Rfam assigns this 81-nucleotide RNA from Polypterus senegalus to the family "mir-128 microRNA precursor family". Rfam links the family to the GO terms miRNA-mediated post-transcriptional gene silencing and RISC complex. It scores 85 bits against the family's covariance model. The source organism's lineage runs through Eukaryota, Metazoa, Vertebrata, Actinopterygii and Polypterus.
RNA sequence: GAGUGGCUGGACCCGGGGCCGGAGCACUGUUUGAGAGGGCUAUGAUUCUCACAGUGAACCGGUCUCUUUUUCAGCUACUAC
Dot-bracket structure: .....(((((....(((((((...((((((..(((............)))))))))...)))))))....)))))......
Numbered sequence: 001g002a003g004u005g006g007c008u009g010g011a012c013c014c015g016g017g018g019c020c021g022g023a024g025c026a027c028u029g030u031u032u033g034a035g036a037g038g039g040c041u042a043u044g045a046u047u048c049u050c051a052c053a054g055u056g057a058a059c060c061g062g063u064c065u066c067u068u069u070u071u072c073a074g075c076u077a078c079u080a081c
Stems, first nucleotide, its partner, number of pairs: 006075005015066007025056006033050003
The family's consensus secondary structure was predicted with RNAalifold.